RNA sequence: ACAUAGGUACAUGACUGGCGGAACUGAGUAUAUUCAGGUAGAGAUCACUACAGGGAGUGUACCGGCAGGAUUUUCUGCAAUGGACAUUGAGCCGACCGCCUGGGCAGCAUUU
Dot-bracket structure: ...(.(((((((..(([[[[[................((((......)))).))..))))))).).........................(((..]]]]]..))).......
About this RNA:
The record is a 112-nucleotide RNA sequence from Clostridium sp. CAG:632, which matches "ZMP/ZTP riboswitch aptamer (pfl RNA motif)" in Rfam. Pairs were carried over by alignment from the consensus structure, which is taken from published work. Gene Ontology terms of the family: regulation of purine nucleotide biosynthetic process and one-carbon metabolic process. It scores 51 bits against the family's covariance model.